[Rfam]
RNA sequence: ACAGAUAAAGCCAAACCUGCCGCAAGGCAGGGACGGAAAGCCACGGGUCAUGACCGAUAGCCGAGCUGCCUGAA
Numbered sequence: 001a002c003a004g005a006u007a008a009a010g011c012c013a014a015a016c017c018u019g020c021c022g023c024a025a026g027g028c029a030g031g032g033a034c035g036g037a038a039a040g041c042c043a044c045g046g047g048u049c050a051u052g053a054c055c056g057a058u059a060g061c062c063g064a065g066c067u068g069c070c071u072g073a074a
Stems, first nucleotide, its partner, number of pairs: 003071002011036002016031006034060001039067003044063003047058003